[Rfam]
The family of this 50-nucleotide sequence is "chrB-b RNA". It is annotated as a cis-regulatory element.
Nucleotides: 050
Stems, first nucleotide, its partner, number of pairs: 002021005011050005027040005
Number, partner (000 for none) and nucleotide at each position: 001000u002021g003020g004019g005018g006017u007000u008000c009000a010000u011050g012049c013048a014047g015046g016000c017006a018005c019004c020003c021002c022000c023000a024000u025000c026000a027040g028039a029038c030037g031036g032000c033000g034000c035000g036031c037030c038029g039028u040027c041000c042000a043000a044000g045000c046015u047014c048013u049012g050011c